[Rfam]
Nucleotides: 053
Stems, first nucleotide, its partner, number of pairs: 003049005009022005025050001031040003
Number, partner (000 for none) and nucleotide at each position: 001000a002000a003049c004048g005047u006046u007045c008000a009022u010021c011020u012019u013018u014000a015000a016000u017000a018013a019012a020011a021010g022009a023000c024000g025050g026000a027000a028000g029000u030000a031040g032039g033038u034000u035000a036000a037000a038033a039032c040031c041000g042000a043000a044000g045007g046006a047005a048004c049003g050025c051000g052000c053000c
The record is a 53-nucleotide RNA, which matches "Glutamine riboswitch aptamer (glnA leader)" in Rfam.
For this family Rfam cites "Bacterial aptamers that selectively bind glutamine" (Ames and Breaker, RNA Biol, 2011).
Gene Ontology term of the family: glutamine binding.
The family's consensus secondary structure is taken from published work.